[Rfam]
RNA sequence: UUUUCAACUUGUUAGGUGAGGCUCCUAAAUGAACAUAGGUUACUACCCAAAAAUGUCCAAAGACACCAAUGGGUAUAACAGGCAUAAUCGGAUUAAGGUUUUGCUUAAGGUAACUGAUCUUAUUGAUCUACGUCAUUUAGUGCUAAAUCCAAAGCGAGGAGUUGGCUA
Numbered sequence: 001u002u003u004u005c006a007a008c009u010u011g012u013u014a015g016g017u018g019a020g021g022c023u024c025c026u027a028a029a030u031g032a033a034c035a036u037a038g039g040u041u042a043c044u045a046c047c048c049a050a051a052a053a054u055g056u057c058c059a060a061a062g063a064c065a066c067c068a069a070u071g072g073g074u075a076u077a078a079c080a081g082g083c084a085u086a087a088u089c090g091g092a093u094u095a096a097g098g099u100u101u102u103g104c105u106u107a108a109g110g111u112a113a114c115u116g117a118u119c120u121u122a123u124u125g126a127u128c129u130a131c132g133u134c135a136u137u138u139a140g141u142g143c144u145a146a147a148u149c150c151a152a153a154g155c156g157a158g159g160a161g162u163u164g165g166c167u168a
Stems, first nucleotide, its partner, number of pairs: 005164006011155002013096001015150002020144003025140008039114005045074005054065004081105004087099003116128003
This 168-nucleotide RNA from Natranaerovirga hydrolytica belongs to the Rfam family "M-box riboswitch aptamer (ykoK leader)". It scores 159 bits against the family's covariance model. NCBI's taxonomy places the organism under Bacteria, Bacillota, Lachnospirales, Natranaerovirgaceae, Natranaerovirga. M-box riboswitch, also know as ykoK leader is described as a metaloregulatory RNA that sense divalent metals and function as a genetic control element of genes related to divalent metal transport in bacteria.